[Rfam]
RNA sequence: GACGGGGCAUGAAAGGCCCGUUCGAAAACGACAGAGGCGCGAGCCUCCAGUAGGACCGAACGGGAGCCGAUGUUCCGUCGUACGUUUUGAAAAACGA
Numbered sequence: 001g002a003c004g005g006g007g008c009a010u011g012a013a014a015g016g017c018c019c020g021u022u023c024g025a026a027a028a029c030g031a032c033a034g035a036g037g038c039g040c041g042a043g044c045c046u047c048c049a050g051u052a053g054g055a056c057c058g059a060a061c062g063g064g065a066g067c068c069g070a071u072g073u074u075c076c077g078u079c080g081u082a083c084g085u086u087u088u089g090a091a092a093a094a095c096g097a
Stems, first nucleotide, its partner, number of pairs: 001079010015068002019062006029053001034047005083096003
A member of the RNA family "Archaeal large subunit ribosomal RNA" from Halosimplex carlsbadense, 97 nucleotides of a longer RNA. On this family, see Yusupov et al., Science 2001: "Crystal structure of the ribosome at 5.5 A resolution".